[Rfam]
RNA: ZMP/ZTP riboswitch aptamer (pfl RNA motif)
Organism: Sphaerisporangium rufum
RNA sequence: UGCGCAGGCCGUGACUGGCGCUGAGGUGGAGCACCACCGGGGAGCGGCCGCUGAGCUGUUGGCAUGUGCCGCGCGCCUGGGCUGACUCC
Numbered sequence: 001u002g003c004g005c006a007g008g009c010c011g012u013g014a015c016u017g018g019c020g021c022u023g024a025g026g027u028g029g030a031g032c033a034c035c036a037c038c039g040g041g042g043a044g045c046g047g048c049c050g051c052u053g054a055g056c057u058g059u060u061g062g063c064a065u066g067u068g069c070c071g072c073g074c075g076c077c078u079g080g081g082c083u084g085a086c087u088c089c
Stems, first nucleotide, its partner, number of pairs: 003053002007049006015041002017077005026037004068082003